[Rfam]
RNA sequence: ACCGGCGGUGGUAGCGCAUCGUUGUAACCCAAGCGGGGGCAGGGGCGGUGGAGUGCCGUAGAUUCAUGCGGUCCAUCAGUCAUGUGUCGAGACUGUGCCUAGUCAGAGUCUGCAGUGCACCUGUGUACUUCCUGGAAGGGGGGUGCACUUGUGCAUAAUGCACAGGGGACCAUGUCAGGCAGGCAACUGAGCAGCAGUACCUGUCGCUGUAGAUGGCUGCUAGAUCACACAGUUGAGCAUGCUGGUGGGGCUCCCGUAUGACACUCUUCUGGUACGACUACACCCC
Numbered sequence: 001a002c003c004g005g006c007g008g009u010g011g012u013a014g015c016g017c018a019u020c021g022u023u024g025u026a027a028c029c030c031a032a033g034c035g036g037g038g039g040c041a042g043g044g045g046c047g048g049u050g051g052a053g054u055g056c057c058g059u060a061g062a063u064u065c066a067u068g069c070g071g072u073c074c075a076u077c078a079g080u081c082a083u084g085u086g087u088c089g090a091g092a093c094u095g096u097g098c099c100u101a102g103u104c105a106g107a108g109u110c111u112g113c114a115g116u117g118c119a120c121c122u123g124u125g126u127a128c129u130u131c132c133u134g135g136a137a138g139g140g141g142g143g144u145g146c147a148c149u150u151g152u153g154c155a156u157a158a159u160g161c162a163c164a165g166g167g168g169a170c171c172a173u174g175u176c177a178g179g180c181a182g183g184c185a186a187c188u189g190a191g192c193a194g195c196a197g198u199a200c201c202u203g204u205c206g207c208u209g210u211a212g213a214u215g216g217c218u219g220c221u222a223g224a225u226c227a228c229a230c231a232g233u234u235g236a237g238c239a240u241g242c243u244g245g246u247g248g249g250g251c252u253c254c255c256g257u258a259u260g261a262c263a264c265u266c267u268u269c270u271g272g273u274a275c276g277a278c279u280a281c282a283c284c285c286c
Base pairs, nucleotide, nucleotide: 002039003038004023005022006021007020008019009018010017028037029036030035042286043285044284045283047281050278053275054274056272057271058270060267061266062265064263065260066259067258068257069256070255071254072249073248074247075246076245077244078243079242081241082240083239084238087236091234092233093232094231095230096229097228099223100222102221104219105218106217108214109213110212111211112210113209114208115207116206117154118153119152120151123148124147125146126145127144128143129142130141131140132139133138162204163203164202165201166200171197173196174195175194180189181188182187

The family of this 286-nucleotide RNA from Scenedesmus sp. NREL 46B-D3 is "Plant signal recognition particle RNA". The family's consensus secondary structure is taken from published work. The family's RNA type in Rfam is non-coding RNA gene. The match comes from Rfam's covariance-model search (108 bits).